[Rfam]
RNA sequence: UGGCUGUGACGACCAAAACUUCGUUUCUCAAUGCUGACUUGAUUCAGAUUUAAUCAAGGACCAAACUUUUGAUGACCUUUGUGCGUGUUUGAGCCAC
Numbered sequence: 001u002g003g004c005u006g007u008g009a010c011g012a013c014c015a016a017a018a019c020u021u022c023g024u025u026u027c028u029c030a031a032u033g034c035u036g037a038c039u040u041g042a043u044u045c046a047g048a049u050u051u052a053a054u055c056a057a058g059g060a061c062c063a064a065a066c067u068u069u070u071g072a073u074g075a076c077c078u079u080u081g082u083g084c085g086u087g088u089u090u091g092a093g094c095c096a097c
Base pairs, nucleotide, nucleotide: 001096002095003094004093
Shown here is a 97-nucleotide sequence from Oryza meyeriana, a member of the family "small nucleolar RNA snoR126". It scores 67 bits against the family's covariance model. Gene Ontology terms of the family: RNA processing and nucleolus. By type it is a C/D-box small nucleolar RNA.